[Rfam]
The family of this 86-nucleotide RNA sequence from Solanum commersonii is "MIR8024 microRNA precursor family".
RNA sequence: UUGAAGAAUUUGAAGGCUUCAAUUUGCAGACUUGAAGAAUUUGAAGGCUUCAACUUGCAAACUUGACAAAUUUGAAGACUUUAACU
Numbered sequence: 001u002u003g004a005a006g007a008a009u010u011u012g013a014a015g016g017c018u019u020c021a022a023u024u025u026g027c028a029g030a031c032u033u034g035a036a037g038a039a040u041u042u043g044a045a046g047g048c049u050u051c052a053a054c055u056u057g058c059a060a061a062c063u064u065g066a067c068a069a070a071u072u073u074g075a076a077g078a079c080u081u082u083a084a085c086u
Base pairs, nucleotide, nucleotide: 001084002083003082004081005080006079009076010075011074012073013072014071019066020065021064025059026058027057028056032053033052034051035050036049037048

Notes: Rfam links the family to the GO terms RISC complex and miRNA-mediated post-transcriptional gene silencing. A search with the family's covariance model found it, with a score of 78 bits. The family has 2 seed sequences and 661 matches in Rfam 15.1.